[Rfam]
RNA sequence: UAGUGCUUCAGCUUUUUUAAAGAAUCUUGUCUAGCUGGUUUUCUGGUUUUCACUGGAAAGCCCAU
Numbered sequence: 001u002a003g004u005g006c007u008u009c010a011g012c013u014u015u016u017u018u019a020a021a022g023a024a025u026c027u028u029g030u031c032u033a034g035c036u037g038g039u040u041u042u043c044u045g046g047u048u049u050u051c052a053c054u055g056g057a058a059a060g061c062c063c064a065u
Base pairs, nucleotide, nucleotide: 037062038061039060040059041058042057043056044055045054046053047052

Overview: Shown here is a 65-nucleotide RNA sequence from Macaca mulatta, a member of the family "U7 small nuclear RNA". A search with the family's covariance model found it, with a score of 50 bits.